[Rfam]
RNA: Small nucleolar RNA snoR26
RNA sequence: GAAGCAUCGAUGAUGAGUUAAUCCGAAAUGUUAUCCUUGCACUAUGAUAUUUCCCGUGAAGAAAUAAAUUGGGGAAAGUUUUUAUUCUCCUGAGAUGCUU
Numbered sequence: 001g002a003a004g005c006a007u008c009g010a011u012g013a014u015g016a017g018u019u020a021a022u023c024c025g026a027a028a029u030g031u032u033a034u035c036c037u038u039g040c041a042c043u044a045u046g047a048u049a050u051u052u053c054c055c056g057u058g059a060a061g062a063a064a065u066a067a068a069u070u071g072g073g074g075a076a077a078g079u080u081u082u083u084a085u086u087c088u089c090c091u092g093a094g095a096u097g098c099u100u
Stems, first nucleotide, its partner, number of pairs: 002100007